A member of the RNA family "MIR5565 microRNA precursor family" from Miscanthus lutarioriparius, 108 nucleotides long.
Pairs were carried over by alignment from the consensus structure, which was predicted with RNAalifold.
Gene Ontology terms of the family: miRNA-mediated post-transcriptional gene silencing and RISC complex.
RNA sequence: GUUAUCGUAUUCACCUCAAUCCACGUGUGUUGGGUGGAUUGGGGUGAAAUUUAGUUUAAGUUACACUCUAAUCCACUUAAACACAUGUGAAUUGAUGUGAAUACGAUA
Numbered sequence: 001g002u003u004a005u006c007g008u009a010u011u012c013a014c015c016u017c018a019a020u021c022c023a024c025g026u027g028u029g030u031u032g033g034g035u036g037g038a039u040u041g042g043g044g045u046g047a048a049a050u051u052u053a054g055u056u057u058a059a060g061u062u063a064c065a066c067u068c069u070a071a072u073c074c075a076c077u078u079a080a081a082c083a084c085a086u087g088u089g090a091a092u093u094g095a096u097g098u099g100a101a102u103a104c105g106a107u108a
Base pairs, nucleotide, nucleotide: 004107005106006105007104008103009102010101011100012099013098014097016095017094018093019092020091022089023088024087025086026085027084028083029082030081031080034076035075036074037073038072039071040070041069042068044066045065046064